Rfam assigns this 43-nucleotide RNA sequence from Serratia proteamaculans to the family "nuoG RNA". Rfam's curators put it in the seed alignment. The family's consensus secondary structure is taken from published work.

RNA sequence: GAAUUUUUGAUUAACGCCUGCCGCAAGGCAGGCCACUUGGAAG
Numbered sequence: 001g002a003a004u005u006u007u008u009g010a011u012u013a014a015c016g017c018c019u020g021c022c023g024c025a026a027g028g029c030a031g032g033c034c035a036c037u038u039g040g041a042a043g
Stems, first nucleotide, its partner, number of pairs: 016033007